[Rfam]
RNA sequence: GUGGUCGCGAGGCCAUAGGUUAUCGAUCCCAUGUUCGGUAGCAUACGAUUGUUUGGAUAUCAACCAGAAACGUCCUACAAGGCCGGACCAGCGGGCGAGCAACGACAUCAUUGCGAAGCCCAAUGCCUAUCGGUUGAUCAGGUAAAGGAUGAGCUUGUGCAGAGGAAACCAAUGC
Numbered sequence: 001g002u003g004g005u006c007g008c009g010a011g012g013c014c015a016u017a018g019g020u021u022a023u024c025g026a027u028c029c030c031a032u033g034u035u036c037g038g039u040a041g042c043a044u045a046c047g048a049u050u051g052u053u054u055g056g057a058u059a060u061c062a063a064c065c066a067g068a069a070a071c072g073u074c075c076u077a078c079a080a081g082g083c084c085g086g087a088c089c090a091g092c093g094g095g096c097g098a099g100c101a102a103c104g105a106c107a108u109c110a111u112u113g114c115g116a117a118g119c120c121c122a123a124u125g126c127c128u129a130u131c132g133g134u135u136g137a138u139c140a141g142g143u144a145a146a147g148g149a150u151g152a153g154c155u156u157g158u159g160c161a162g163a164g165g166a167a168a169c170c171a172a173u174g175c
Stems, first nucleotide, its partner, number of pairs: 001016006041175004049162004055155002058152001071151006082143003086139002089136004093121004099114004

A member of the RNA family "Group II catalytic intron D1-D4-3" from Pirellula sp. SH-Sr6A, 175 nucleotides long. Group II introns are found in rRNA, tRNA and mRNA of organelles in fungi, plants and protists, and also in mRNA in bacteria. Taxonomically the source falls in Pirellula (Bacteria, Pseudomonadati, Planctomycetia, Pirellulales). A search with the family's covariance model found it, with a score of 49 bits. Pairs were carried over by alignment from the consensus structure.